[Rfam]
Background:
This 88-nucleotide RNA from Lentibacillus salicampi belongs to the Rfam family "BsrC". The source organism's lineage runs through Bacteria, Bacillota, Caryophanales, Bacillaceae and Lentibacillus. The family's RNA type in Rfam is small RNA. The base pairs follow the family's consensus structure, which was predicted with CMfinder. The 301 nucleotide sequence from Kouji Nakamura has been trimmed to a highly conserved ~85 nucleotide long core to form this family.
Nucleotides: 088
Stems, first nucleotide, its partner, number of pairs: 036067002040063002042059004047054001
Number, partner (000 for none) and nucleotide at each position: 001000c002000u003000c004000a005000a006000c007000u008000u009000a010000a011000g012000c013000a014000a015000c016000g017000u018000c019000a020000g021000c022000c023000c024000a025000a026000c027000c028000u029000g030000c031000u032000c033000u034000g035000a036067c037066g038000u039000c040063c041062u042059u043058g044057c045056g046000a047054c048000c049000c050000c051000g052000a053000a054047g055000c056045c057044g058043c059042g060000c061000c062041a063040g064000u065000g066037u067036g068000a069000a070000u071000a072000a073000g074000c075000a076000u077000c078000g079000c080000c081000a082000a083000a084000a085000a086000c087000a088000a